[Rfam]
RNA sequence: UGGCCUGCUUCUGUGUGGAAGACUUGUGAUUUUGUUGUUUUUAGUUAGACAAAGUGACAACAAAUCACGGUCUGCCCUACAGCACAGGCCC
Numbered sequence: 001u002g003g004c005c006u007g008c009u010u011c012u013g014u015g016u017g018g019a020a021g022a023c024u025u026g027u028g029a030u031u032u033u034g035u036u037g038u039u040u041u042u043a044g045u046u047a048g049a050c051a052a053a054g055u056g057a058c059a060a061c062a063a064a065u066c067a068c069g070g071u072c073u074g075c076c077c078u079a080c081a082g083c084a085c086a087g088g089c090c091c
Stems, first nucleotide, its partner, number of pairs: 002090005009084001011082005017076002020073005026068007034061006
Dot-bracket structure: .(((((..(.(((((.((.(((((.(((((((.((((((................)))))))))))))))))).)).))))).).))))).
A member of the RNA family "mir-7 microRNA precursor family" from Bagarius yarrelli, 91 nucleotides long. The base pairs follow the family's consensus structure, which was predicted with PFOLD. Rfam links the family to the GO terms RISC complex and miRNA-mediated post-transcriptional gene silencing. This family represents the microRNA (miRNA) precursor mir-7. For this family Rfam cites "Identification of novel genes coding for small expressed RNAs" (Lagos-Quintana et al., Science, 2001).